[Rfam]
The family of this 133-nucleotide RNA from Neobacillus piezotolerans is "c-di-AMP riboswitch aptamer (ydaO/yuaA leader)".
The pairing is the family consensus, mapped onto this sequence.
RNA sequence: AUUUCUAAAUCGCUGAAACCGACUGGUGCGGGGGACCCAAUCUUGGUUUUUCCAGGGGUGAAUCCUUUACAGGUAGGGCUACUCACAGGCCCGAAUCCGGCAGCUAACCUCGUAAGCGUUUUUGGGAAGGGAG
Numbered sequence: 001a002u003u004u005c006u007a008a009a010u011c012g013c014u015g016a017a018a019c020c021g022a023c024u025g026g027u028g029c030g031g032g033g034g035a036c037c038c039a040a041u042c043u044u045g046g047u048u049u050u051u052c053c054a055g056g057g058g059u060g061a062a063u064c065c066u067u068u069a070c071a072g073g074u075a076g077g078g079c080u081a082c083u084c085a086c087a088g089g090c091c092c093g094a095a096u097c098c099g100g101c102a103g104c105u106a107a108c109c110u111c112g113u114a115a116g117c118g119u120u121u122u123u124g125g126g127a128a129g130g131g132a133g
Stems, first nucleotide, its partner, number of pairs: 011118004018027003028113006038055001056098003064073003076092004